Small nucleolar RNA SNORA29: a 136-nucleotide sequence from Microtus ochrogaster. About the family: ACA29 is a member of the H/ACA class of snoRNA that guide the sites of modification of uridines to pseudouridines. By type it is an H/ACA-box small nucleolar RNA. The family's consensus secondary structure was predicted with PFOLD. Lineage of the source: Eukaryota > Euteleostomi > Eutheria > Rodentia > Microtus. The family has 26 seed sequences and 960 matches in Rfam 15.1.

RNA sequence: UUUCCCAUUUGACUACCGCAUUUUCUGCUAGUAGAUUUUAGUGGCUAUGCUUAUGGGGUAGAUGAAAAGUGCCGUGAUCUGAGAGGGAGGACUUUUCUAUGUCUUCCCCCUAUAUGAGAUGGCUGAACAGGAAAAA
Numbered sequence: 001u002u003u004c005c006c007a008u009u010u011g012a013c014u015a016c017c018g019c020a021u022u023u024u025c026u027g028c029u030a031g032u033a034g035a036u037u038u039u040a041g042u043g044g045c046u047a048u049g050c051u052u053a054u055g056g057g058g059u060a061g062a063u064g065a066a067a068a069g070u071g072c073c074g075u076g077a078u079c080u081g082a083g084a085g086g087g088a089g090g091a092c093u094u095u096u097c098u099a100u101g102u103c104u105u106c107c108c109c110c111u112a113u114a115u116g117a118g119a120u121g122g123c124u125g126a127a128c129a130g131g132a133a134a135a136a
Stems, first nucleotide, its partner, number of pairs: 004057004016044004071123004088111003
Dot-bracket structure: ...((((........((((.....................)))).........)))).............((((.............(((..................)))........)))).............